Rfam assigns this 369-nucleotide sequence from Oxytricha trifallax to the family "RNase MRP". From the family's description: RNase MRP is an enzymatically active ribonucleoprotein with two distinct roles in eukaryotes. The match comes from Rfam's covariance-model search (60 bits). On this family, see Schmitt et al., FASEB J 1993: "Secondary structure of RNase MRP RNA as predicted by phylogenetic comparison". It is annotated as a ribozyme. The organism belongs to Oxytricha, within Eukaryota.
RNA sequence: GGUUGUGAUUAAGAAUUACGGCUAAGCACUCACACAGAUCCCAUGUUUAGGAUCAGUACUCACUGCUUAGGGGAAAGUCUCCGAGCCACUAAAAAUACCUAGAAAGUAGGGCCCUUGAUUGGGUGGGUCGAGCAUCACACCGGCAAGAAUGAGGGGGGGCAGGGGAAUGCGAGGAAGGGUAAAACUUUCUUUGGCGCCUUUGAAACUUCUCUAGCCUACAGGUGUGGUCUCGACUUUUAGCUAUAUCAAAGUUAUGUAAUUGCUGCACUUCCCGAAUCAAUUAUAACUUGAAAUUAAUCUAUUAAAUAAUUUUAUAAAUAAAGAAUGCUUCGGCAAUCUCUUUGUGCAGUAACAGAAUUAAAUCAUAAA
Numbered sequence: 001g002g003u004u005g006u007g008a009u010u011a012a013g014a015a016u017u018a019c020g021g022c023u024a025a026g027c028a029c030u031c032a033c034a035c036a037g038a039u040c041c042c043a044u045g046u047u048u049a050g051g052a053u054c055a056g057u058a059c060u061c062a063c064u065g066c067u068u069a070g071g072g073g074a075a076a077g078u079c080u081c082c083g084a085g086c087c088a089c090u091a092a093a094a095a096u097a098c099c100u101a102g103a104a105a106g107u108a109g110g111g112c113c114c115u116u117g118a119u120u121g122g123g124u125g126g127g128u129c130g131a132g133c134a135u136c137a138c139a140c141c142g143g144c145a146a147g148a149a150u151g152a153g154g155g156g157g158g159g160c161a162g163g164g165g166a167a168u169g170c171g172a173g174g175a176a177g178g179g180u181a182a183a184a185c186u187u188u189c190u191u192u193g194g195c196g197c198c199u200u201u202g203a204a205a206c207u208u209c210u211c212u213a214g215c216c217u218a219c220a221g222g223u224g225u226g227g228u229c230u231c232g233a234c235u236u237u238u239a240g241c242u243a244u245a246u247c248a249a250a251g252u253u254a255u256g257u258a259a260u261u262g263c264u265g266c267a268c269u270u271c272c273c274g275a276a277u278c279a280a281u282u283a284u285a286a287c288u289u290g291a292a293a294u295u296a297a298u299c300u301a302u303u304a305a306a307u308a309a310u311u312u313u314a315u316a317a318a319u320a321a322a323g324a325a326u327g328c329u330u331c332g333g334c335a336a337u338c339u340c341u342u343u344g345u346g347c348a349g350u351a352a353c354a355g356a357a358u359u360a361a362a363u364c365a366u367a368a369a
Stems, first nucleotide, its partner, number of pairs: 003368006009361003014261006022071001023069006037054005043048001098110004111128004116123001130231003136226006263349006